Rfam assigns this 147-nucleotide RNA sequence from Chromobacterium sp. LK11 to the family "FMN riboswitch aptamer (RFN element)". The organism belongs to Chromobacterium, within Bacteria. Gene Ontology term of the family: FMN binding.
RNA sequence: CAACGUCUUCAGGGCGGGGUGCAAUUCCCCACCGGCGGUAUGGCCCUUGGGCCGAGCCCGCGAGCGCUUUCGCCUCCCGGCGGAAGGUCAGCAGAUCUGGUGACAGGCCAGAGCCGACGGUAAUAGUCCGGAUGAGAGAAGACGACA
Number, nucleotide and partner (000 for none) at each position: 001c000002a000003a000004c144005g143006u142007c141008u140009u139010c138011a000012g000013g000014g000015c000016g000017g029018g028019g027020u000021g000022c000023a000024a000025u000026u000027c019028c018029c017030c000031a127032c126033c116034g115035g061036c060037g059038g058039u000040a000041u000042g000043g000044c000045c000046c000047u000048u000049g000050g000051g000052c000053c000054g000055a000056g114057c113058c038059c037060g036061c035062g000063a000064g092065c091066g000067c000068u000069u000070u000071c000072g000073c000074c000075u000076c000077c000078c000079g000080g000081c000082g000083g000084a000085a000086g000087g000088u000089c000090a000091g065092c064093a000094g000095a000096u112097c111098u110099g109100g108101u000102g000103a000104c000105a000106g000107g000108c100109c099110a098111g097112a096113g057114c056115c034116g033117a000118c130119g129120g128121u000122a000123a000124u000125a000126g032127u031128c120129c119130g118131g000132a000133u000134g000135a000136g000137a000138g010139a009140a008141g007142a006143c005144g004145a000146c000147a000